RNA: mir-135 microRNA precursor family
RNA sequence: CCUCUGCUGUGGUCUAUGGCUUUUUAUUCCUAUGUGAUUGCUUUUCAUAACUCAUGUAGGGCUAAAAGCCAUGGGCUACACAGAGGA
Numbered sequence: 001c002c003u004c005u006g007c008u009g010u011g012g013u014c015u016a017u018g019g020c021u022u023u024u025u026a027u028u029c030c031u032a033u034g035u036g037a038u039u040g041c042u043u044u045u046c047a048u049a050a051c052u053c054a055u056g057u058a059g060g061g062c063u064a065a066a067a068g069c070c071a072u073g074g075g076c077u078a079c080a081c082a083g084a085g086g087a
Stems, first nucleotide, its partner, number of pairs: 002086002005083001008080016026063001028061010